[Rfam]
RNA sequence: CACCGAGUCCGAGGCUCCGGACGACACCGGAGCCUGGUGCAAAAGGA
Numbered sequence: 001c002a003c004c005g006a007g008u009c010c011g012a013g014g015c016u017c018c019g020g021a022c023g024a025c026a027c028c029g030g031a032g033c034c035u036g037g038u039g040c041a042a043a044a045g046g047a
Base pairs, nucleotide, nucleotide: 013034014033015032016031017030018029019028020027
Rfam assigns this 47-nucleotide RNA sequence from Streptomyces pseudogriseolus to the family "raiA-hairpin RNA". The base pairs follow the family's consensus structure, which is taken from published work. The sequence is in the family's curated seed alignment.